RNA sequence: GCACUCAAGCAGAAGCACCCGCUUCUCACCUGAUUGACGCCAAAGGGCAGUUGACUGGUACGCAAUCGAACGGAUCGUGUUAUUUAAAGUGGGUGUCGUAUGCAAUAACGGCACCCACUUUUUACGUAUG
Numbered sequence: 001g002c003a004c005u006c007a008a009g010c011a012g013a014a015g016c017a018c019c020c021g022c023u024u025c026u027c028a029c030c031u032g033a034u035u036g037a038c039g040c041c042a043a044a045g046g047g048c049a050g051u052u053g054a055c056u057g058g059u060a061c062g063c064a065a066u067c068g069a070a071c072g073g074a075u076c077g078u079g080u081u082a083u084u085u086a087a088a089g090u091g092g093g094u095g096u097c098g099u100a101u102g103c104a105a106u107a108a109c110g111g112c113a114c115c116c117a118c119u120u121u122u123u124a125c126g127u128a129u130g
Stems, first nucleotide, its partner, number of pairs: 011026006028059003036052003039048002090117010
RNA: Ribosomal protein L20 leader
Organism: Geomicrobium halophilum